[Rfam]
RNA: SAM riboswitch aptamer (S box leader)
Organism: Acetoanaerobium sticklandii
RNA sequence: AUCUUAUCCAGAGAGGUGGAGGGACUGGCCCUACGAAACCCGGCAACCAGCUGCAUUGCAGCAUUGGUGCUAAUUCCUGAGGUAUUAUUACAUACCUAAAGAUAAGAG
Number, nucleotide and partner (000 for none) at each position: 001a000002u107003c106004u105005u104006a103007u102008c101009c000010a000011g000012a000013g041014a000015g040016g039017u038018g000019g000020a000021g031022g030023g029024a000025c079026u000027g077028g076029c023030c022031c021032u000033a000034c000035g000036a000037a000038a017039c016040c015041c013042g071043g070044c069045a068046a000047c067048c066049a000050g062051c061052u060053g000054c000055a000056u000057u000058g000059c000060a052061g051062c050063a000064u000065u000066g048067g047068u045069g044070c043071u042072a000073a000074u000075u100076c028077c027078u000079g025080a097081g096082g095083u094084a093085u092086u000087a000088u000089u000090a000091c000092a085093u084094a083095c082096c081097u080098a000099a000100a075101g008102a007103u006104a005105a004106g003107a002108g000